RNA sequence: CUGCAGUGAUGACCUUCUUAGGACACCUUUGGAAUAAAGAUGAAAAGACGAAAGAAAUCUGAGCAGU
Numbered sequence: 001c002u003g004c005a006g007u008g009a010u011g012a013c014c015u016u017c018u019u020a021g022g023a024c025a026c027c028u029u030u031g032g033a034a035u036a037a038a039g040a041u042g043a044a045a046a047g048a049c050g051a052a053a054g055a056a057a058u059c060u061g062a063g064c065a066g067u
Base pairs, nucleotide, nucleotide: 001066002065003064004063
Dot-bracket structure: ((((..........................................................)))).